A member of the RNA family "FMN riboswitch aptamer (RFN element)" from Limosilactobacillus panis, 143 nucleotides long. Rfam's curators write: The RFN element is a highly conserved domain that is found frequently in the 5'-untranslated regions of prokaryotic mRNAs that encode for flavin mononucleotide (FMN) biosynthesis and transport proteins. A search with the family's covariance model found it, with a score of 119 bits.
[Rfam]
RNA sequence: AGUUUUCUUCGGGGCCGGGUGAAAUUCCCAACCGACGGUGACAAGGCAACUUGAAGUCCGUGACCCGCUAGUCGACAGUGACCAGCGGUUGAACCAGUGCAAGUCUGGUACCGACAGUAUAGUCUGGAUGGGAGAAGAAAAAC
Numbered sequence: 001a002g003u004u005u006u007c008u009u010c011g012g013g014g015c016c017g018g019g020u021g022a023a024a025u026u027c028c029c030a031a032c033c034g035a036c037g038g039u040g041a042c043a044a045g046g047c048a049a050c051u052u053g054a055a056g057u058c059c060g061u062g063a064c065c066c067g068c069u070a071g072u073c074g075a076c077a078g079u080g081a082c083c084a085g086c087g088g089u090u091g092a093a094c095c096a097g098u099g100c101a102a103g104u105c106u107g108g109u110a111c112c113g114a115c116a117g118u119a120u121a122g123u124c125u126g127g128a129u130g131g132g133a134g135a136a137g138a139a140a141a142a143c
Base pairs, nucleotide, nucleotide: 003141004140005139006138007137008136009135010134017029018028019027031123032122033113034112035061036060037059038058056111057110065088066087067086068085093109094108095107096106097105115126116125117124
Taxonomically the source falls in Limosilactobacillus panis (Bacteria, Bacillota, Bacilli, Limosilactobacillus).